[Rfam]
RNA sequence: GCCGAGCUUUGUAACGGGAGUUUGUAAUACGAAUGGGGGCAUUGAGGUGAUGGGACUUAGGUUUGGAUCUUUGAGUCGGAUCCCAAUAGGCUUUAUAAUGGCUUGCCCGUUUCAACCAAAGAGUGGGCCAUGGGACCUCAGUGAAAACUGUUGGUGUCGUGGCUAUUAGAGUGAAGGGUACUGCGUGAGGCUGGUUUCACAGAGCAGCGAAGACUUUCCUCUCUUGGCAGUGGAAGGAUAACAAGCUUCAUCCUCAAAGAUCCAACAUGCCUCACUGAGCCGAACUUAAGUGGACCAUCAUCUUU
Dot-bracket structure: ((((((((((......)))))))....(.(....).))))...((((((((((..(.(.(((((((.((..((((.((((((.....(((..(......((((((.((.(((((..(.(((((..((((((((.(((.((((....))))..))).)))))))).(....).(((((....(.(((....(((......)))....))).)..)))))..))))).)...)))))))....))))))..).)))....))))).....).))))..)).)))))).).)..)..)))))))))).